RNA sequence: GGCUUUUUUAGCUCAGGCGGAGCUCGACCACUAACUAAAACAAUGCUUCAAUUUAUCGAUAAUUAUAAAGAUAAUUACGGGAUCGAGCCAAUCUGUCGAGUACUACCGAUUGCCCCA
Numbered sequence: 001g002g003c004u005u006u007u008u009u010a011g012c013u014c015a016g017g018c019g020g021a022g023c024u025c026g027a028c029c030a031c032u033a034a035c036u037a038a039a040a041c042a043a044u045g046c047u048u049c050a051a052u053u054u055a056u057c058g059a060u061a062a063u064u065a066u067a068a069a070g071a072u073a074a075u076u077a078c079g080g081g082a083u084c085g086a087g088c089c090a091a092u093c094u095g096u097c098g099a100g101u102a103c104u105a106c107c108g109a110u111u112g113c114c115c116c117a
Stems, first nucleotide, its partner, number of pairs: 016032002019029002079116003089112002092109002095106002098103001
A member of the RNA family "ALIL pseudoknot" from Psychrobacter arcticus, 117 nucleotides long. NCBI's taxonomy places the organism under Bacteria, Gammaproteobacteria, Moraxellales, Moraxellaceae, Psychrobacter arcticus. For this family Rfam cites "Apical loop-internal loop RNA pseudoknots: a new type of stimulator of -1 translational frameshifting in bacteria" (Mazauric et al., J Biol Chem, 2008). Rfam classes the family as a cis-regulatory element. Gene Ontology term of the family: positive regulation of translational frameshifting.